[Rfam]
RNA sequence: ACCCAACUCUCGGGGUGCCAUAAGACUAAAGUAUUCAUUAGUUGAUAAAGGCUGAGAUGCAACGCAAACCCGUAUAACCUGAUCCGAUUAGCAUCGGCGUAGGGAAGAGUAAUAAAUCAUCA
Numbered sequence: 001a002c003c004c005a006a007c008u009c010u011c012g013g014g015g016u017g018c019c020a021u022a023a024g025a026c027u028a029a030a031g032u033a034u035u036c037a038u039u040a041g042u043u044g045a046u047a048a049a050g051g052c053u054g055a056g057a058u059g060c061a062a063c064g065c066a067a068a069c070c071c072g073u074a075u076a077a078c079c080u081g082a083u084c085c086g087a088u089u090a091g092c093a094u095c096g097g098c099g100u101a102g103g104g105a106a107g108a109g110u111a112a113u114a115a116a117u118c119a120u121c122a
Stems, first nucleotide, its partner, number of pairs: 006110005011072004016066001017052003021048001059065002078103004084097004
Rfam assigns this 122-nucleotide sequence from Kangiella sp. HZ709 to the family "TPP riboswitch aptamer (THI element)". The base pairs follow the family's consensus structure, which is taken from published work. NCBI's taxonomy places the organism under Bacteria, Pseudomonadota, Gammaproteobacteria, Kangiellales, Kangiella. The match comes from Rfam's covariance-model search (69 bits). Vitamin B(1) in its active form thiamin pyrophosphate (TPP) is an essential coenzyme that is synthesised by coupling of pyrimidine and thiazole moieties in bacteria.